A member of the RNA family "Streptomyces sRNA scr5239" from Streptomyces sp. NRRL F-4428, 157 nucleotides long.
Pairs were carried over by alignment from the consensus structure, which is taken from published work.
Its family is annotated with mRNA binding and negative regulation of translation in the Gene Ontology.
The literature on the family includes a 2015 paper in PLoS One by Vockenhuber et al., "Identification of metE as a second target of the sRNA scr5239 in Streptomyces coelicolor".
RNA sequence: UCUCCGCCCUCCCCGCACAGGAGGACGGAUCGAGGUAGCCGCGCGCUCUGCCCUGACCGCGCAGGCACCUCUCACCGGCCGCCGGGAACCGCACACCUGACGGCCGUAAGUACUCCGGGCUACGGUGCCGGACGGGUUGAGGGUCCCGUCCUGCACC
Numbered sequence: 001u002c003u004c005c006g007c008c009c010u011c012c013c014c015g016c017a018c019a020g021g022a023g024g025a026c027g028g029a030u031c032g033a034g035g036u037a038g039c040c041g042c043g044c045g046c047u048c049u050g051c052c053c054u055g056a057c058c059g060c061g062c063a064g065g066c067a068c069c070u071c072u073c074a075c076c077g078g079c080c081g082c083c084g085g086g087a088a089c090c091g092c093a094c095a096c097c098u099g100a101c102g103g104c105c106g107u108a109a110g111u112a113c114u115c116c117g118g119g120c121u122a123c124g125g126u127g128c129c130g131g132a133c134g135g136g137u138u139g140a141g142g143g144u145c146c147c148g149u150c151c152u153g154c155a156c157c
Base pairs, nucleotide, nucleotide: 003029004028005027006026008024009023010022011021012020032071033070034069035068036067039064041062043060044059046055076106077105078104079103080102081101084098085097086096111127112126113125114124117121130151131150132149133148134147135146136145
The organism belongs to Streptomyces, within Bacteria.